The record is a 75-nucleotide RNA from Paenarthrobacter sp. YJN-5, which matches "Actino-pnp RNA" in Rfam.
[Rfam]
RNA sequence: CGCGGUCCUCGGUAGUGAUUCCCGGGAGGGGCGUCGUUUGACGCUGCAGCCCGUGGAUCUCGAUCGAUGACCGGG
Numbered sequence: 001c002g003c004g005g006u007c008c009u010c011g012g013u014a015g016u017g018a019u020u021c022c023c024g025g026g027a028g029g030g031g032c033g034u035c036g037u038u039u040g041a042c043g044c045u046g047c048a049g050c051c052c053g054u055g056g057a058u059c060u061c062g063a064u065c066g067a068u069g070a071c072c073g074g075g
Stems, first nucleotide, its partner, number of pairs: 001075001003073005009067005017059005023053004

Annotation: It scores 56 bits against the family's covariance model. NCBI's taxonomy places the organism under Bacteria, Bacillati, Actinomycetes, Micrococcales, Paenarthrobacter. Pairs were carried over by alignment from the consensus structure, which is taken from published work.